[Rfam]
RNA sequence: GGGGGUGGAAGGGUAUCUGGUGAGCCCCGCGGUCUUCAAAACCGUUGGGGACGGCGUUCCCGUCCCGGUGUGUUCGAUCCGCACCCACCCUC
Numbered sequence: 001g002g003g004g005g006u007g008g009a010a011g012g013g014u015a016u017c018u019g020g021u022g023a024g025c026c027c028c029g030c031g032g033u034c035u036u037c038a039a040a041a042c043c044g045u046u047g048g049g050g051a052c053g054g055c056g057u058u059c060c061c062g063u064c065c066c067g068g069u070g071u072g073u074u075c076g077a078u079c080c081g082c083a084c085c086c087a088c089c090c091u092c
Stems, first nucleotide, its partner, number of pairs: 001092008012027002016023002029045005048066005069083004
Shown here is a 92-nucleotide RNA from Flavonifractor sp. An306, a member of the family "Selenocysteine transfer RNA".
It scores 66 bits against the family's covariance model.
The family's consensus secondary structure is taken from published work.